A member of the RNA family "Small nucleolar RNA SNORA8" from Molossus molossus, 136 nucleotides long.
The match comes from Rfam's covariance-model search (111 bits).
The family's consensus secondary structure was predicted with RNAfold.
The family's RNA type in Rfam is H/ACA-box small nucleolar RNA.
Rfam's curators write: ACA8 is a member of the H/ACA class of snoRNA that guide the sites of modification of uridines to pseudouridines.
Taxonomically the source falls in Molossus (Eukaryota, Theria, Eutheria, Yangochiroptera).

RNA sequence: UGGAGAUGUUCUCCUGCAUUCAGCAGUUUAUUCCUGCUGGGUGUUCAAAGGACACUGUAAUUUAAAUUCAGUAUCUAGCAUCAUUGAUUUUCUUGGCUUUGUGCAUGUUAAACCUGGUAUUUUUAUUGAGAAAGAG
Numbered sequence: 001u002g003g004a005g006a007u008g009u010u011c012u013c014c015u016g017c018a019u020u021c022a023g024c025a026g027u028u029u030a031u032u033c034c035u036g037c038u039g040g041g042u043g044u045u046c047a048a049a050g051g052a053c054a055c056u057g058u059a060a061u062u063u064a065a066a067u068u069c070a071g072u073a074u075c076u077a078g079c080a081u082c083a084u085u086g087a088u089u090u091u092c093u094u095g096g097c098u099u100u101g102u103g104c105a106u107g108u109u110a111a112a113c114c115u116g117g118u119a120u121u122u123u124u125a126u127u128g129a130g131a132a133a134g135a136g
Stems, first nucleotide, its partner, number of pairs: 001054002012052004016044011061125001064122004068117004078104004